[Rfam]
RNA sequence: GGUACCUGUACACGUUGCGGCGCAACUAUGGUAAAAGG
Numbered sequence: 001g002g003u004a005c006c007u008g009u010a011c012a013c014g015u016u017g018c019g020g021c022g023c024a025a026c027u028a029u030g031g032u033a034a035a036a037g038g
Base pairs, nucleotide, nucleotide: 005031006030014026015025016024017023018022

Selenocysteine insertion sequence 4: a 38-nucleotide sequence from Peptoniphilus duerdenii. The base pairs follow the family's consensus structure, which was predicted with PFOLD. The family's RNA type in Rfam is cis-regulatory element.